[Rfam]
RNA sequence: GUCAGGGUGAGUCGGGCUGGUGAUGGAACGAGUCUUCAACUCUCGGGGCAUGGGGACAUGCAAGAGUUCGAUUCUCCCUCCUUGAC
Numbered sequence: 001g002u003c004a005g006g007g008u009g010a011g012u013c014g015g016g017c018u019g020g021u022g023a024u025g026g027a028a029c030g031a032g033u034c035u036u037c038a039a040c041u042c043u044c045g046g047g048g049c050a051u052g053g054g055g056a057c058a059u060g061c062a063a064g065a066g067u068u069c070g071a072u073u074c075u076c077c078c079u080c081c082u083u084g085a086c
Stems, first nucleotide, its partner, number of pairs: 001086007009078001012027002015024001017022001029045004048061005064076003

Shown here is an 86-nucleotide RNA sequence from Polarella glacialis, a member of the family "Selenocysteine transfer RNA". Lineage of the source: Eukaryota > Dinophyceae > Suessiales > Suessiaceae > Polarella. The base pairs follow the family's consensus structure, which is taken from published work.